[Rfam]
RNA sequence: AAUAUCUAUGGAAAUGAUGUCUUCCAUCUAGUGAUAGAGAACUGCAAUAUUGCUGAUGACGUCUAUAGUUUU
Numbered sequence: 001a002a003u004a005u006c007u008a009u010g011g012a013a014a015u016g017a018u019g020u021c022u023u024c025c026a027u028c029u030a031g032u033g034a035u036a037g038a039g040a041a042c043u044g045c046a047a048u049a050u051u052g053c054u055g056a057u058g059a060c061g062u063c064u065a066u067a068g069u070u071u072u
Stems, first nucleotide, its partner, number of pairs: 010025004016063006044053003
This 72-nucleotide RNA from Firmicutes bacterium CAG:345 belongs to the Rfam family "Fluoride riboswitch aptamer (crcB RNA motif)". The match comes from Rfam's covariance-model search (41 bits). The source organism's lineage runs through Bacteria, Bacillati and Bacillota.